[Rfam]
RNA sequence: UGAGACCUCUUGGUGACCGCGGUCGUGCCGUUCAUUCGUCACGGCUGAGGAACUUCCGGGCUCCAUAGAGCACGAUGGCGGAUAACGUCCGCCCAGGGAAACCUGAGAGAUAGCGCAACAGAGAAUAGACCGCCCGGCUUACCGGGUAAGGGUGAAACGGCGGUGCAAGAGACCACCGGAUCGUUGGUAACAGCGAUCGCAUGGCAAGCCUCAUCGGGAGCAAGGCCAAGCAGAAGGCAGUAGGGUUGCUCGCUCAGCCUUCGGGUAGGCUGCUAGAGCCUGGCGGUAACGUCAGGUCGAGAUGGAUGGUCACCCGCGUAGCAAUACGCGACAGAACCCGGGGUAUAAGAGGUCUCAUCAA
Number, nucleotide and partner (000 for none) at each position: 001u357002g356003a355004g354005a353006c352007c351008u350009c349010u348011u000012g314013g313014u312015g311016a310017c309018c308019g000020c047021g046022g045023u044024c043025g042026u041027g040028c000029c000030g000031u000032u000033c000034a000035u000036u000037c000038g000039u000040c027041a026042c025043g024044g023045c022046u021047g020048a000049g000050g000051a000052a344053c343054u342055u000056c341057c340058g339059g338060g337061c220062u219063c218064c217065a000066u000067a000068g251069a250070g249071c248072a000073c216074g215075a214076u213077g212078g092079c091080g090081g089082a088083u000084a000085a000086c000087g000088u082089c081090c080091g079092c078093c107094c105095a104096g103097g102098g000099a000100a000101a000102c097103c096104u095105g094106a000107g093108a211109g210110a000111u000112a000113g209114c208115g205116c204117a000118a000119c000120a000121g000122a000123g000124a000125a000126u000127a000128g000129a000130c151131c150132g147133c146134c145135c144136g143137g142138c000139u000140u000141a000142c137143c136144g135145g134146g133147u132148a000149a000150g131151g130152g000153u000154g000155a000156a000157a000158c000159g177160g176161c000162g174163g173164u172165g000166c000167a000168a000169g000170a000171g000172a164173c163174c162175a000176c160177c159178g200179g198180a197181u196182c195183g194184u193185u192186g191187g000188u000189a000190a000191c186192a185193g184194c183195g182196a181197u180198c179199g000200c178201a000202u000203g000204g116205c115206a000207a000208g114209c113210c109211u108212c077213a076214u075215c074216g073217g064218g063219a062220g061221c000222a000223a000224g271225g270226c269227c268228a000229a000230g000231c000232a000233g262234a261235a260236g259237g258238c257239a000240g000241u000242a000243g255244g254245g253246u252247u000248g071249c070250u069251c068252g246253c245254u244255c243256a000257g238258c237259c236260u235261u234262c233263g000264g000265g000266u000267a000268g227269g226270c225271u224272g000273c000274u000275a000276g000277a000278g297279c296280c295281u294282g293283g292284c291285g290286g000287u000288a000289a000290c285291g284292u283293c282294a281295g280296g279297u278298c000299g000300a000301g000302a000303u000304g000305g000306a000307u000308g018309g017310u016311c015312a014313c013314c012315c000316g000317c000318g000319u000320a000321g000322c000323a000324a000325u000326a000327c000328g000329c000330g000331a000332c000333a000334g000335a000336a000337c060338c059339c058340g057341g056342g054343g053344u052345a000346u000347a000348a010349g009350a008351g007352g006353u005354c004355u003356c002357a001358u000359c000360a000361a000

Bacterial RNase P class A: a 361-nucleotide RNA from Bifidobacterium tsurumiense. Ribonuclease P (RNase P) is a ubiquitous endoribonuclease, found in archaea, bacteria and eukarya as well as chloroplasts and mitochondria. Its best characterised activity is the generation of mature 5'-ends of tRNAs by cleaving the 5'-leader elements of precursor-tRNAs. Cellular RNase Ps are ribonucleoproteins. RNA from bacterial RNase Ps retains its catalytic activity in the absence of the protein subunit, i.e. it is a ribozyme. Pairs were carried over by alignment from the consensus structure, which is taken from published work. It is annotated as a ribozyme.